[Rfam]
RNA sequence: ACCUGGGCCGGGGCGAGAGCAGGGCGCCCCGGUCUCGGAAAGACAUACACCGUGCCACGGAAUUUGUGUGCACAUAUGGGCGUU
Numbered sequence: 001a002c003c004u005g006g007g008c009c010g011g012g013g014c015g016a017g018a019g020c021a022g023g024g025c026g027c028c029c030c031g032g033u034c035u036c037g038g039a040a041a042g043a044c045a046u047a048c049a050c051c052g053u054g055c056c057a058c059g060g061a062a063u064u065u066g067u068g069u070g071c072a073c074a075u076a077u078g079g080g081c082g083u084u
Base pairs, nucleotide, nucleotide: 004037005036006034007033008032009031010030011029012028013027014026015025052073053072054071055070056068057067058066

nrdJ RNA: an 84-nucleotide RNA sequence. Rfam classes the family as a small RNA.